[Rfam]
RNA: Bacterial large subunit ribosomal RNA, nucleotides 1662 to 1996
RNA sequence: CGAGAGAACUCUCGUUAAGGAACUCGGCAAAAUGACCCCGUAACUUCGGGAGAAGGGGUGCUUGUGAGAGCAAGCCGCAGUGAAAAGGCCCAAGCGACUGUUUAUCAAAAACACAGGUCUCUGCUAAACCGUAAGGUGAAGUAUAGGGGCUGACGCCUGCCCGGUGCUGGAAGGUUAAGGGGAAGUGUUAUACUUAGGUAGAAGCAUAGAACCGAAGCCCCAGUAAACGGCGGCCGUAACUAUAACGGUCCUAAGGUAGCGAAAUUCCUUGUCGGGUAAGUUCCGACCCGCACGAAAGGCGUAACGAUUUGGGCACUGUCUCAACGAGAGACUCG
Numbered sequence: 001c002g003a004g005a006g007a008a009c010u011c012u013c014g015u016u017a018a019g020g021a022a023c024u025c026g027g028c029a030a031a032a033u034g035a036c037c038c039c040g041u042a043a044c045u046u047c048g049g050g051a052g053a054a055g056g057g058g059u060g061c062u063u064g065u066g067a068g069a070g071c072a073a074g075c076c077g078c079a080g081u082g083a084a085a086a087g088g089c090c091c092a093a094g095c096g097a098c099u100g101u102u103u104a105u106c107a108a109a110a111a112c113a114c115a116g117g118u119c120u121c122u123g124c125u126a127a128a129c130c131g132u133a134a135g136g137u138g139a140a141g142u143a144u145a146g147g148g149g150c151u152g153a154c155g156c157c158u159g160c161c162c163g164g165u166g167c168u169g170g171a172a173g174g175u176u177a178a179g180g181g182g183a184a185g186u187g188u189u190a191u192a193c194u195u196a197g198g199u200a201g202a203a204g205c206a207u208a209g210a211a212c213c214g215a216a217g218c219c220c221c222a223g224u225a226a227a228c229g230g231c232g233g234c235c236g237u238a239a240c241u242a243u244a245a246c247g248g249u250c251c252u253a254a255g256g257u258a259g260c261g262a263a264a265u266u267c268c269u270u271g272u273c274g275g276g277u278a279a280g281u282u283c284c285g286a287c288c289c290g291c292a293c294g295a296a297a298g299g300c301g302u303a304a305c306g307a308u309u310u311g312g313g314c315a316c317u318g319u320c321u322c323a324a325c326g327a328g329a330g331a332c333u334c335g
Stems, first nucleotide, its partner, number of pairs: 001335004009330008018321003035059005044049001060075006076080001088314007095306002099113003116151008124141001128137003154301004159231003164228002166224005173219003179213002185207004191200002232250006251255001261288001271287006